[Rfam]
Nucleotides: 098
Base pairs, nucleotide, nucleotide: 003091004090005089009085010084011083014081015080016079017078018077019076020075021073022072025069026068027067028066029065031062032061033060
Number, partner (000 for none) and nucleotide at each position: 001000a002000u003091c004090a005089c006000c007000a008000u009085g010084g011083g012000a013000u014081u015080u016079u017078g018077u019076u020075a021073a022072a023000a024000u025069g026068c027067a028066g029065a030000u031062c032061u033060c034000c035000a036000u037000u038000c039000a040000g041000u042000a043000g044000g045000u046000c047000u048000g049000g050000g051000g052000u053000g054000g055000g056000g057000c058000u059000u060033g061032a062031g063000a064000u065029u066028c067027u068026g069025u070000a071000g072022u073021u074000c075020u076019a077018a078017c079016a080015a081014g082000c083011u084010c085009c086000c087000a088000g089005g090004u091003g092000a093000u094000g095000c096000u097000a098000a
Notes:
The family of this 98-nucleotide RNA from Odocoileus virginianus is "mir-544 microRNA precursor family". The organism belongs to Odocoileus virginianus, within Eukaryota. Rfam 15.1 lists 10,750 matches to the family in 132 species. A search with the family's covariance model found it, with a score of 67 bits.